RNA: Makes More Granules Regulator RNA (mmgR)
RNA sequence: GGUGAUGGCCCUCUUUGGGCGUUUCCUCCCUAAGACUUGGACCGCUGGCAAACCCAGCGGUCUUUUUUUGGAAUUUC
Dot-bracket structure: .......((((.....))))...................(((((((((.....)))))))))...............